[Rfam]
RNA sequence: UAUAUAAAAACGCCUAAUUUCAUGGAAAGCGGGGGAACCAUUCUUUUGGGGUGAACUACCUGUGGUAGCGGGCUAACUUUCGGUCCGAACCCGUCAGCUAACUCCGUCGGCGUAGAAAGUGGGGAAGG
Numbered sequence: 001u002a003u004a005u006a007a008a009a010a011c012g013c014c015u016a017a018u019u020u021c022a023u024g025g026a027a028a029g030c031g032g033g034g035g036a037a038c039c040a041u042u043c044u045u046u047u048g049g050g051g052u053g054a055a056c057u058a059c060c061u062g063u064g065g066u067a068g069c070g071g072g073c074u075a076a077c078u079u080u081c082g083g084u085c086c087g088a089a090c091c092c093g094u095c096a097g098c099u100a101a102c103u104c105c106g107u108c109g110g111c112g113u114a115g116a117a118a119g120u121g122g123g124g125a126a127g128g
Stems, first nucleotide, its partner, number of pairs: 011112004018028003029107006039048002049092003057067004070086004
RNA: c-di-AMP riboswitch aptamer (ydaO/yuaA leader)